[Rfam]
RNA sequence: GAUGGUAGAUCCAUCAAAGUCGUUGUAUAGGCGAUGGCUCUAAACCCCCUAAAGGUGCUGUUGUAAAGACCCCCGAAGCCUCGGGGGUGCUGAGCGUUUAGGAGAAUCUAGUCCUAGAGAUUAGCAGGU
Numbered sequence: 001g002a003u004g005g006u007a008g009a010u011c012c013a014u015c016a017a018a019g020u021c022g023u024u025g026u027a028u029a030g031g032c033g034a035u036g037g038c039u040c041u042a043a044a045c046c047c048c049c050u051a052a053a054g055g056u057g058c059u060g061u062u063g064u065a066a067a068g069a070c071c072c073c074c075g076a077a078g079c080c081u082c083g084g085g086g087g088u089g090c091u092g093a094g095c096g097u098u099u100a101g102g103a104g105a106a107u108c109u110a111g112u113c114c115u116a117g118a119g120a121u122u123a124g125c126a127g128g129u
Stems, first nucleotide, its partner, number of pairs: 001015005016041001018039004023034004046128001048102006054091002057088002059085001068082002071078001108124005